[Rfam]
RNA sequence: ACUGGGCCUUGUAACGUGGGCCUGUAACCCAAGUGGGAGCAAUAAGGUGAUGGAACAUUAGGCCCAUUUAGAUGAUUUGUGGGCUUUGCUUAAUGCUAGCCUUGCCCCUAUCCAAACAUUGAGUUGGGCCUUGUUGUUGUGUCUGUGCGGCGGCAUGGGUGCCGUGCCCUCUUCGCAAAGGAGGGCACGGUGUCAGGCUGGUUUCACGGAGCAGCGAUAUUGUCCUUCUUUGUGUAGUGGAAGGAGCGGGCUGGCGCUUUCAAGCCCACUAACUUAUCGAGAUGGGUAAUUGAACCAUCACCUUU
Numbered sequence: 001a002c003u004g005g006g007c008c009u010u011g012u013a014a015c016g017u018g019g020g021c022c023u024g025u026a027a028c029c030c031a032a033g034u035g036g037g038a039g040c041a042a043u044a045a046g047g048u049g050a051u052g053g054a055a056c057a058u059u060a061g062g063c064c065c066a067u068u069u070a071g072a073u074g075a076u077u078u079g080u081g082g083g084c085u086u087u088g089c090u091u092a093a094u095g096c097u098a099g100c101c102u103u104g105c106c107c108c109u110a111u112c113c114a115a116a117c118a119u120u121g122a123g124u125u126g127g128g129c130c131u132u133g134u135u136g137u138u139g140u141g142u143c144u145g146u147g148c149g150g151c152g153g154c155a156u157g158g159g160u161g162c163c164g165u166g167c168c169c170u171c172u173u174c175g176c177a178a179a180g181g182a183g184g185g186c187a188c189g190g191u192g193u194c195a196g197g198c199u200g201g202u203u204u205c206a207c208g209g210a211g212c213a214g215c216g217a218u219a220u221u222g223u224c225c226u227u228c229u230u231u232g233u234g235u236a237g238u239g240g241a242a243g244g245a246g247c248g249g250g251c252u253g254g255c256g257c258u259u260u261c262a263a264g265c266c267c268a269c270u271a272a273c274u275u276a277u278c279g280a281g282a283u284g285g286g287u288a289a290u291u292g293a294a295c296c297a298u299c300a301c302c303u304u305u
Stems, first nucleotide, its partner, number of pairs: 002039002004023006028037003044304010056292002058289003063285002067281001069280001071278005077272002079269008088257001090256001096254007104247002107244002111241004116235004121230003126170003130166001132164002139162010172177001179226004184221002189218001191216003198209003